[Rfam]
RNA sequence: CCCUCCGAAGUUUCCCCCAGGAUAGCUACAGCACUAAUGUAACAGUUUUACUGUGUCAAGCGAAUGAUUAGAGGCCUCGGGAGAUUGUAAUUUCUCGACCUAUUCUCAAACUCUUAAUUGGUAAGAUACGAUACGCUAUUUUUCUAAGCGUAUUGUGGAAAAAGACAUGAUUCUUUUUUUGAGAAUGUAUUGCUGUUAGUGGGCCAUUUUUGGUAAGCAGAACUGGCGAUGCGGGUUGAACCGAACGAGAUGCUAAGGUGCCUGAAUGUACGGUUCAUUAGAAAUCGAAAAGGUGUUGAUUCAUUUAGACAGCAGGACGAUGGUCAUGGAAGUUGACAUUCGCUAAGGAGUGUGUAACAACUCACCUGCCGAAUGGUUUAGCCCUGAAAAAGGAUGGCGCUUCACCGUACUACCGAUGCAUCUCCGUUUCUUUUUCUGAAUGUAUAAACAAGGAACGUGUAGGAGGGCGUAGAGUAUGUUGUCAAGUUUAUUUUUGCGAAUGAAUGGAACGUACUCUAAUGCGGAU
Numbered sequence: 001c002c003c004u005c006c007g008a009a010g011u012u013u014c015c016c017c018c019a020g021g022a023u024a025g026c027u028a029c030a031g032c033a034c035u036a037a038u039g040u041a042a043c044a045g046u047u048u049u050a051c052u053g054u055g056u057c058a059a060g061c062g063a064a065u066g067a068u069u070a071g072a073g074g075c076c077u078c079g080g081g082a083g084a085u086u087g088u089a090a091u092u093u094c095u096c097g098a099c100c101u102a103u104u105c106u107c108a109a110a111c112u113c114u115u116a117a118u119u120g121g122u123a124a125g126a127u128a129c130g131a132u133a134c135g136c137u138a139u140u141u142u143u144c145u146a147a148g149c150g151u152a153u154u155g156u157g158g159a160a161a162a163a164g165a166c167a168u169g170a171u172u173c174u175u176u177u178u179u180u181g182a183g184a185a186u187g188u189a190u191u192g193c194u195g196u197u198a199g200u201g202g203g204c205c206a207u208u209u210u211u212g213g214u215a216a217g218c219a220g221a222a223c224u225g226g227c228g229a230u231g232c233g234g235g236u237u238g239a240a241c242c243g244a245a246c247g248a249g250a251u252g253c254u255a256a257g258g259u260g261c262c263u264g265a266a267u268g269u270a271c272g273g274u275u276c277a278u279u280a281g282a283a284a285u286c287g288a289a290a291a292g293g294u295g296u297u298g299a300u301u302c303a304u305u306u307a308g309a310c311a312g313c314a315g316g317a318c319g320a321u322g323g324u325c326a327u328g329g330a331a332g333u334u335g336a337c338a339u340u341c342g343c344u345a346a347g348g349a350g351u352g353u354g355u356a357a358c359a360a361c362u363c364a365c366c367u368g369c370c371g372a373a374u375g376g377u378u379u380a381g382c383c384c385u386g387a388a389a390a391a392g393g394a395u396g397g398c399g400c401u402u403c404a405c406c407g408u409a410c411u412a413c414c415g416a417u418g419c420a421u422c423u424c425c426g427u428u429u430c431u432u433u434u435u436c437u438g439a440a441u442g443u444a445u446a447a448a449c450a451a452g453g454a455a456c457g458u459g460u461a462g463g464a465g466g467g468c469g470u471a472g473a474g475u476a477u478g479u480u481g482u483c484a485a486g487u488u489u490a491u492u493u494u495u496g497c498g499a500a501u502g503a504a505u506g507g508a509a510c511g512u513a514c515u516c517u518a519a520u521g522c523g524g525a526u
Stems, first nucleotide, its partner, number of pairs: 001467006011024001013022003028196006046126008058114001059112002065108003070103001072101003077098006084091001128179001130177002133174001135172001203227004208222005232243003247424005253418001257414003266411001268410001271407003291385003295382005301376004312369005318342003323337003343347001348363001352361002425457008468521001470518010486505002491500003
RNA: Eukaryotic large subunit ribosomal RNA, nucleotides 1014 to 1539